[Rfam]
RNA sequence: GGGGACGAUCUGGUUUCGACGUGGGUUGCAAAGCAGCGCAGGGCAUACCGAGGAUCAGAUUACCUCGUAAAUCCAUCUGAAAACAAUAGUCGCAAACGACGAAAACUACGCUUUAGCCGCUUAAUCGGCUAGCCUCUGCACCGGUGGGCCUCAACGCCGGGUCUGGCAACAGACAGCAGAGUCACUAACGGGGAUCGCGUUUUAUAGGGUCACUUUAUAAAACGUUAAACGCAAGGUGACUCGCCUGUCAUCAGCUUGCCGGUUGGCGGUUGCCAGGCUAAAUUAAAUAACAUGGCUAAGUAUGUAGAACUGUCUGUAGAGGACUUGCGGACGCGGGUUCGAUUCCCGCCGUCUCCACCA
Numbered sequence: 001g002g003g004g005a006c007g008a009u010c011u012g013g014u015u016u017c018g019a020c021g022u023g024g025g026u027u028g029c030a031a032a033g034c035a036g037c038g039c040a041g042g043g044c045a046u047a048c049c050g051a052g053g054a055u056c057a058g059a060u061u062a063c064c065u066c067g068u069a070a071a072u073c074c075a076u077c078u079g080a081a082a083a084c085a086a087u088a089g090u091c092g093c094a095a096a097c098g099a100c101g102a103a104a105a106c107u108a109c110g111c112u113u114u115a116g117c118c119g120c121u122u123a124a125u126c127g128g129c130u131a132g133c134c135u136c137u138g139c140a141c142c143g144g145u146g147g148g149c150c151u152c153a154a155c156g157c158c159g160g161g162u163c164u165g166g167c168a169a170c171a172g173a174c175a176g177c178a179g180a181g182u183c184a185c186u187a188a189c190g191g192g193g194a195u196c197g198c199g200u201u202u203u204a205u206a207g208g209g210u211c212a213c214u215u216u217a218u219a220a221a222a223c224g225u226u227a228a229a230c231g232c233a234a235g236g237u238g239a240c241u242c243g244c245c246u247g248u249c250a251u252c253a254g255c256u257u258g259c260c261g262g263u264u265g266g267c268g269g270u271u272g273c274c275a276g277g278c279u280a281a282a283u284u285a286a287a288u289a290a291c292a293u294g295g296c297u298a299a300g301u302a303u304g305u306a307g308a309a310c311u312g313u314c315u316g317u318a319g320a321g322g323a324c325u326u327g328c329g330g331a332c333g334c335g336g337g338u339u340c341g342a343u344u345c346c347c348g349c350c351g352u353c354u355c356c357a358c359c360a
Stems, first nucleotide, its partner, number of pairs: 001356007020329008033317004038313004044304005049067005055080006113132007134181006141160004149193004198224006208241006243278005249272002252269001254267003258296004263289001333349005